[Rfam]
RNA sequence: CUUACAUAGUUCUUUGGCAUUCUGUCCACCUCCAAUUAGCUUCAUGAUCUUCUAUAUUUUUUUAGAAAAUUAUAAUUUAUUAUUUAGAAAAAAAAAAUAAGAAAAAAAAUGGAGGUGGGCAUACUGUCAACAGAUUUGUGUUGG
Numbered sequence: 001c002u003u004a005c006a007u008a009g010u011u012c013u014u015u016g017g018c019a020u021u022c023u024g025u026c027c028a029c030c031u032c033c034a035a036u037u038a039g040c041u042u043c044a045u046g047a048u049c050u051u052c053u054a055u056a057u058u059u060u061u062u063u064a065g066a067a068a069a070u071u072a073u074a075a076u077u078u079a080u081u082a083u084u085u086a087g088a089a090a091a092a093a094a095a096a097a098u099a100a101g102a103a104a105a106a107a108a109a110u111g112g113a114g115g116u117g118g119g120c121a122u123a124c125u126g127u128c129a130a131c132a133g134a135u136u137u138g139u140g141u142u143g144g
Stems, first nucleotide, its partner, number of pairs: 011134001014130006023121011
This 144-nucleotide sequence from Solanum tuberosum belongs to the Rfam family "MIR394 microRNA precursor family". The family has 19 seed sequences and 724 matches in Rfam 15.1. Taxonomically the source falls in Solanum (Eukaryota, Euphyllophyta, Spermatophyta, Mesangiospermae).